[Rfam]
The record is a 113-nucleotide sequence from Musa balbisiana, which matches "Plastid-psbA-1 3UTR RNA" in Rfam. It is annotated as a cis-regulatory element. The family is grouped with related families in Rfam's "Plastid-psbA 3UTR RNA clan". Taxonomically the source falls in Musa (Eukaryota, Embryophyta, Euphyllophyta, Musaceae). The base pairs follow the family's consensus structure, which was predicted with LocARNA. It scores 61 bits against the family's covariance model.
Nucleotides: 113
Base pairs, nucleotide, nucleotide: 007022008021009020010019011018059113060112061111062110063109064108065107069103073099074098077095078094079093081091
Number, partner (000 for none) and nucleotide at each position: 001000u002000c003000g004000a005000a006000g007022u008021u009020c010019a011018u012000c013000u014000a015000c016000a017000a018011a019010u020009g021008g022007a023000u024000a025000a026000g027000a028000u029000u030000u031000u032000u033000g034000u035000c036000u037000g038000u039000g040000u041000u042000u043000a044000u045000a046000c047000u048000a049000u050000c051000g052000u053000u054000g055000a056000a057000a058000c059113a060112a061111a062110g063109u064108a065107g066000c067000a068000u069103a070000c071000c072000c073099c074098c075000u076000a077095g078094u079093c080000c081091u082000g083000c084000u085000u086000u087000a088000a089000g090000c091081a092000a093079g094078a095077c096000a097000u098074g099073g100000g101000u102000a103069u104000u105000g106000a107065c108064u109063a110062c111061u112060u113059u